This 81-nucleotide RNA sequence from Dicaeum eximium belongs to the Rfam family "mir-181 microRNA precursor family". A search with the family's covariance model found it, with a score of 76 bits. Pairs were carried over by alignment from the consensus structure, which was predicted with PFOLD. Lineage of the source: Eukaryota > Sauria > Passeroidea > Dicaeidae > Dicaeum.

[Rfam]
RNA sequence: UGGCUGCAAUCAACAUUCAUUGCUGUCGGUGGGUUUUCAUGUCUAUCAACUCACUGAUCAAUGAAUGCAAACUGCGGACCA
Number, nucleotide and partner (000 for none) at each position: 001u081002g080003g079004c077005u076006g075007c074008a073009a000010u000011c000012a000013a000014c067015a066016u065017u064018c063019a062020u061021u060022g059023c000024u000025g058026u057027c056028g055029g054030u053031g052032g000033g050034u049035u048036u000037u000038c000039a000040u000041g000042u000043c000044u000045a000046u000047c000048a035049a034050c033051u000052c031053a030054c029055u028056g027057a026058u025059c022060a021061a020062u019063g018064a017065a016066u015067g014068c000069a000070a000071a000072c000073u008074g007075c006076g005077g004078a000079c003080c002081a001